[Rfam]
RNA sequence: GCCUCCCGUGCCUACUGAGCUGAUUACAGUAAUACAGAAAUGCUGGCUCAGUUCAGCAGGAACAGGAG
Numbered sequence: 001g002c003c004u005c006c007c008g009u010g011c012c013u014a015c016u017g018a019g020c021u022g023a024u025u026a027c028a029g030u031a032a033u034a035c036a037g038a039a040a041u042g043c044u045g046g047c048u049c050a051g052u053u054c055a056g057c058a059g060g061a062a063c064a065g066g067a068g
Stems, first nucleotide, its partner, number of pairs: 003068004008063002011060003015056009027045004
A member of the RNA family "mir-24 microRNA precursor family" from Astyanax mexicanus, 68 nucleotides long. This family represents the microRNA (miRNA) mir-24 family. miRNAs are transcribed as ~70nt precursors (modelled here) and subsequently processed by the Dicer enzyme to give a ~22nt product. In this case the mature sequence comes from the 3' arm of the precursor. The extents of the hairpin precursors are not generally known and are estimated based on hairpin prediction. The products are thought to have regulatory roles through complementarity to mRNA. The involvement of Dicer in miRNA processing suggests a relationship with the phenomenon of RNA interference. miRNAs are numbered based on the sequence of the mature RNA. miR-24 has been identified in human and mouse. Gene Ontology terms of the family: RISC complex and miRNA-mediated post-transcriptional gene silencing. For this family Rfam cites "microRNAs: tiny regulators with great potential" (Ambros, Cell, 2001).